The record is a 194-nucleotide RNA from Agrilus planipennis, which matches "R2 RNA element" in Rfam. It is annotated as a cis-regulatory element. A reference for the family is Ruschak et al. (2004), "Secondary structure models of the 3' untranslated regions of diverse R2 RNAs", RNA. The organism belongs to Agrilus, within Eukaryota. Gene Ontology term of the family: regulation of reverse transcription. A search with the family's covariance model found it, with a score of 43 bits. Rfam's curators write: This family represents the 3' UTR region of the R2 retrotransposable element. This family is known to interact with the R2-encoded reverse transcriptase in a reaction known as target primed reverse transcription (TPRT).
RNA sequence: AAAUAAAAAGUACAACAGUUUUCUCUAAAAUUAACUUGGUAAUUCGGUUGAAGAGGAUCUUAAUUGGUCCUAGAACGGCCUGAGGUAGAGGGGUUUUAGUCGGUAGGUCUGAGGACUUCUUCCUCGGGAAUCCGACACUACCCAGUCGUACGGACGGCUGAGUGUCUUUCAAAGAUUUCCCCUCUUCCACGACA
Numbered sequence: 001a002a003a004u005a006a007a008a009a010g011u012a013c014a015a016c017a018g019u020u021u022u023c024u025c026u027a028a029a030a031u032u033a034a035c036u037u038g039g040u041a042a043u044u045c046g047g048u049u050g051a052a053g054a055g056g057a058u059c060u061u062a063a064u065u066g067g068u069c070c071u072a073g074a075a076c077g078g079c080c081u082g083a084g085g086u087a088g089a090g091g092g093g094u095u096u097u098a099g100u101c102g103g104u105a106g107g108u109c110u111g112a113g114g115a116c117u118u119c120u121u122c123c124u125c126g127g128g129a130a131u132c133c134g135a136c137a138c139u140a141c142c143c144a145g146u147c148g149u150a151c152g153g154a155c156g157g158c159u160g161a162g163u164g165u166c167u168u169u170c171a172a173a174g175a176u177u178u179c180c181c182c183u184c185u186u187c188c189a190c191g192a193c194a
Base pairs, nucleotide, nucleotide: 040066041065042064043063044062067193068192069191071189084188085187087185088184090181091180092179099136100135101134102133103132108128109127110126111125112124113123114122115121138164142160